[Rfam]
RNA sequence: UUCAAAAUUGUCACUUGUCAUUUUCUAAUUGGUUCUUAGUGUGUUAAAAUUUUAUAAGAACCAAUUAGAAAAUGACAAGUGGCAAUUUUAGA
Numbered sequence: 001u002u003c004a005a006a007a008u009u010g011u012c013a014c015u016u017g018u019c020a021u022u023u024u025c026u027a028a029u030u031g032g033u034u035c036u037u038a039g040u041g042u043g044u045u046a047a048a049a050u051u052u053u054a055u056a057a058g059a060a061c062c063a064a065u066u067a068g069a070a071a072a073u074g075a076c077a078a079g080u081g082g083c084a085a086u087u088u089u090a091g092a
Base pairs, nucleotide, nucleotide: 002091004089005088006087007086008085009084010083011082012081013080014079015078016077017076018075019074020073021072022071023070024069025068026067027066028065029064030063031062032061033060034059035058036057037056038055
RNA: MIR6288 microRNA precursor family